Overview
Rfam assigns this 74-nucleotide RNA sequence from Mytilus edulis to the family "Small nucleolar RNA SNORD59". Its family is annotated with RNA processing and nucleolus in the Gene Ontology. It scores 53 bits against the family's covariance model. Rfam classes the family as a C/D-box small nucleolar RNA. The organism belongs to Mytilus, within Eukaryota. On this family, see Galardi et al., Mol Cell Biol 2002: "Purified box C/D snoRNPs are able to reproduce site-specific 2'-O-methylation of target RNA in vitro". Clan: SNORD59 clan.

[Rfam]
RNA sequence: UCCAUUAUGAUGAGUACAAAUCAAGACUUUCGUUCUUCUGAGAUUUAAUGAAGACAAUUUUGAUUCUGAAUGGA
Numbered sequence: 001u002c003c004a005u006u007a008u009g010a011u012g013a014g015u016a017c018a019a020a021u022c023a024a025g026a027c028u029u030u031c032g033u034u035c036u037u038c039u040g041a042g043a044u045u046u047a048a049u050g051a052a053g054a055c056a057a058u059u060u061u062g063a064u065u066c067u068g069a070a071u072g073g074a
Stems, first nucleotide, its partner, number of pairs: 001074003005070001